FMN riboswitch aptamer (RFN element): a 191-nucleotide RNA sequence from Alloalcanivorax dieselolei. About the family: The RFN element is a highly conserved domain that is found frequently in the 5'-untranslated regions of prokaryotic mRNAs that encode for flavin mononucleotide (FMN) biosynthesis and transport proteins. This element is a metabolite-dependent riboswitch that directly binds FMN in the absence of proteins. In Bacillus subtilis, the riboswitch most likely controls gene expression by causing premature transcription termination within the 5' untranslated region of the ribDEAHT operon and precluding access to the ribosome-binding site of ypaA mRNA.The FMN riboswitch structure, reported in present an FMN-bound six-stem junction, adopts a butterfly-like scaffold, stapled together by opposingly directed but nearly identically folded peripheral domains. The match comes from Rfam's covariance-model search (109 bits). The family's consensus secondary structure is taken from published work.

[Rfam]
RNA sequence: GAUCGUUCUCGGGGCGGGGUGAAAGUCCCCACCGGCGGUAAGGGAGCCUCUCCCAAGCCCGCGAGCGCCCGCGGCCACAGGCCAUCGCCAUUGUCUCCAUCGGCGGUCCGGUCUGCCUCAUGGUCACGGGGUCAGCAGAUCUGGUGUGAUUCCAGAGCCGACGGUGAUAGUCCGGAUAAGAGAGAACGGGA
Numbered sequence: 001g002a003u004c005g006u007u008c009u010c011g012g013g014g015c016g017g018g019g020u021g022a023a024a025g026u027c028c029c030c031a032c033c034g035g036c037g038g039u040a041a042g043g044g045a046g047c048c049u050c051u052c053c054c055a056a057g058c059c060c061g062c063g064a065g066c067g068c069c070c071g072c073g074g075c076c077a078c079a080g081g082c083c084a085u086c087g088c089c090a091u092u093g094u095c096u097c098c099a100u101c102g103g104c105g106g107u108c109c110g111g112u113c114u115g116c117c118u119c120a121u122g123g124u125c126a127c128g129g130g131g132u133c134a135g136c137a138g139a140u141c142u143g144g145u146g147u148g149a150u151u152c153c154a155g156a157g158c159c160g161a162c163g164g165u166g167a168u169a170g171u172c173c174g175g176a177u178a179a180g181a182g183a184g185a186a187c188g189g190g191a
Stems, first nucleotide, its partner, number of pairs: 003189008017029003031171002033160002035062004057158002065136002140156005162174003